A member of the RNA family "Voltage-gated potassium-channel Kv1.4 IRES", 258 nucleotides long. It is one of the family's seed sequences. A reference for the family is Jang et al. (2004), "Structurally distinct elements mediate internal ribosome entry within the 5'-noncoding region of a voltage-gated potassium channel mRNA", J Biol Chem. The family's RNA type in Rfam is internal ribosome entry site. Rfam describes the family as follows. This family represents the Kv1.4 voltage-gated potassium-channel internal ribosome entry site (IRES). This region has been shown to mediate internal ribosome entry in cells derived from brain, heart, and skeletal muscle, tissues known to express Kv1.4 mRNA species.

RNA sequence: UAAGUUUGAGGAACACUAGGCGUUGUCUAGACGAGGCAAGCUCUGGAAAGCAACGCCGAGUCUCUGAGAAGAGGGAGCAUGGGGUGUGCUGAUUUAAAAACAGAAAAUGCAAAGUUGGACUGAAAAUAUCCCACGUCUUCUAAGCAAUCUGCUUAAGGCUUCCAAACUUACCUUAAUUUGGUAAGAAAAUAAGCUGCCCUAUUUUUCUUUCUUCUUCUCUUACAACUGGAACCAGGCAUUUCCAAAACCACCACCAUG
Numbered sequence: 001u002a003a004g005u006u007u008g009a010g011g012a013a014c015a016c017u018a019g020g021c022g023u024u025g026u027c028u029a030g031a032c033g034a035g036g037c038a039a040g041c042u043c044u045g046g047a048a049a050g051c052a053a054c055g056c057c058g059a060g061u062c063u064c065u066g067a068g069a070a071g072a073g074g075g076a077g078c079a080u081g082g083g084g085u086g087u088g089c090u091g092a093u094u095u096a097a098a099a100a101c102a103g104a105a106a107a108u109g110c111a112a113a114g115u116u117g118g119a120c121u122g123a124a125a126a127u128a129u130c131c132c133a134c135g136u137c138u139u140c141u142a143a144g145c146a147a148u149c150u151g152c153u154u155a156a157g158g159c160u161u162c163c164a165a166a167c168u169u170a171c172c173u174u175a176a177u178u179u180g181g182u183a184a185g186a187a188a189a190u191a192a193g194c195u196g197c198c199c200u201a202u203u204u205u206u207c208u209u210u211c212u213u214c215u216u217c218u219c220u221u222a223c224a225a226c227u228g229g230a231a232c233c234a235g236g237c238a239u240u241u242c243c244a245a246a247a248c249c250a251c252c253a254c255c256a257u258g
Stems, first nucleotide, its partner, number of pairs: 045243005066216012079202008088194003093189003101151004108146003115143005122137002167185006